[Rfam]
RNA sequence: UGGUUCAGGCGGCCCCCUCCUCCUUCCAAGGGACGUCUAUAGGAACGGCGGCACUCCUCCCAGUCGCUGUUCGCUUUUUUUGAGAAAGCCUGCCGCACCUCCUCCCGCGGCAGGCUUUUUCG
Numbered sequence: 001u002g003g004u005u006c007a008g009g010c011g012g013c014c015c016c017c018u019c020c021u022c023c024u025u026c027c028a029a030g031g032g033a034c035g036u037c038u039a040u041a042g043g044a045a046c047g048g049c050g051g052c053a054c055u056c057c058u059c060c061c062a063g064u065c066g067c068u069g070u071u072c073g074c075u076u077u078u079u080u081u082g083a084g085a086a087a088g089c090c091u092g093c094c095g096c097a098c099c100u101c102c103u104c105c106c107g108c109g110g111c112a113g114g115c116u117u118u119u120u121c122g
Stems, first nucleotide, its partner, number of pairs: 007038005013032003043072010086117011
A member of the RNA family "Alphaproteobacterial ar14" from Rhizobium gallicum, 122 nucleotides long. The source organism's lineage runs through Bacteria, Pseudomonadati, Hyphomicrobiales, Rhizobiaceae and Rhizobium gallicum bv. gallicum. The pairing is the family consensus, mapped onto this sequence. It scores 88 bits against the family's covariance model. The family's RNA type in Rfam is small RNA.